[Rfam]
RNA: Small nucleolar RNA Z221/R21b
Organism: Beta vulgaris
RNA sequence: GAGCUAUGAUGAGAAUUAAGAUAGUCAUGCACCACUCUGAUUUUCGUGCUGAGAUAUUUCUUUAUAACCCAUAUUUAUCUCUGAGCUC
Numbered sequence: 001g002a003g004c005u006a007u008g009a010u011g012a013g014a015a016u017u018a019a020g021a022u023a024g025u026c027a028u029g030c031a032c033c034a035c036u037c038u039g040a041u042u043u044u045c046g047u048g049c050u051g052a053g054a055u056a057u058u059u060c061u062u063u064a065u066a067a068c069c070c071a072u073a074u075u076u077a078u079c080u081c082u083g084a085g086c087u088c
Base pairs, nucleotide, nucleotide: 001088002087003086004085